[Rfam]
RNA: Flavo-1 RNA
RNA sequence: UAAUAAACGGGAUUGAAGCGGUACCCCGGAUUGGCCGCCAUUUGCGGACAAACGGAGUAUAGCGUAAAGCCCGACUAUCG
Numbered sequence: 001u002a003a004u005a006a007a008c009g010g011g012a013u014u015g016a017a018g019c020g021g022u023a024c025c026c027c028g029g030a031u032u033g034g035c036c037g038c039c040a041u042u043u044g045c046g047g048a049c050a051a052a053c054g055g056a057g058u059a060u061a062g063c064g065u066a067a068a069g070c071c072c073g074a075c076u077a078u079c080g
Stems, first nucleotide, its partner, number of pairs: 009072003013068002018063002023058002026055001031051003035047004
Dot-bracket structure: ........(((.((...((...((.(....(((.((((.....)))).)))...).))...))...)).)))........